Shown here is an 82-nucleotide sequence from Triticum aestivum, a member of the family "Small nucleolar RNA R16". Rfam classes the family as a C/D-box small nucleolar RNA. Gene Ontology terms of the family: RNA processing and nucleolus. The family has 18 seed sequences and 884 matches in Rfam 15.1. NCBI's taxonomy places the organism under Eukaryota, Viridiplantae, Liliopsida, Pooideae, Triticum.
RNA sequence: GGUGGCGAAUGAUGUGAACUAUUUUGCUAGACACUGAAUCUUUGACAUGUUUACAAAAUUCCGUUUAUUAUUUGAUGCCAUU
Numbered sequence: 001g002g003u004g005g006c007g008a009a010u011g012a013u014g015u016g017a018a019c020u021a022u023u024u025u026g027c028u029a030g031a032c033a034c035u036g037a038a039u040c041u042u043u044g045a046c047a048u049g050u051u052u053a054c055a056a057a058a059u060u061c062c063g064u065u066u067a068u069u070a071u072u073u074g075a076u077g078c079c080a081u082u
Stems, first nucleotide, its partner, number of pairs: 003080005
Dot-bracket structure: ..(((((....................................................................)))))..